[Rfam]
RNA sequence: ACGUCCUGCCUCGUGAUCGUCUUCUCACCCUUCACCCGGCAGGCGGAAUGACGGAGAGCCCCCACACGUCCGAUACGUGCGGGGGCUCUCC
Numbered sequence: 001a002c003g004u005c006c007u008g009c010c011u012c013g014u015g016a017u018c019g020u021c022u023u024c025u026c027a028c029c030c031u032u033c034a035c036c037c038g039g040c041a042g043g044c045g046g047a048a049u050g051a052c053g054g055a056g057a058g059c060c061c062c063c064a065c066a067c068g069u070c071c072g073a074u075a076c077g078u079g080c081g082g083g084g085g086c087u088c089u090c091c
Stems, first nucleotide, its partner, number of pairs: 002045002005043006013035004019029001053091011065079004
Dot-bracket structure: .((.((((((..((((..(.........)..))))..)))))))).......(((((((((((.((((.......)))).)))))))))))
Notes: Rfam assigns this 91-nucleotide RNA sequence from Streptomyces inhibens to the family "sodF sRNA". Rfam 15.1 lists 336 matches to the family in 317 species. It scores 85 bits against the family's covariance model. The literature on the family includes a 2014 paper in Nucleic Acids Res by Kim et al., "Inverse regulation of Fe- and Ni-containing SOD genes by a Fur family regulator Nur through small RNA processed from 3'UTR of the sodF mRNA". The pairing is the family consensus, mapped onto this sequence. Rfam classes the family as a small RNA. Lineage of the source: Bacteria > Actinomycetes > Kitasatosporales > Streptomycetaceae > Streptomyces. Its family is annotated with regulation of mRNA stability, mRNA binding and negative regulation of translation in the Gene Ontology.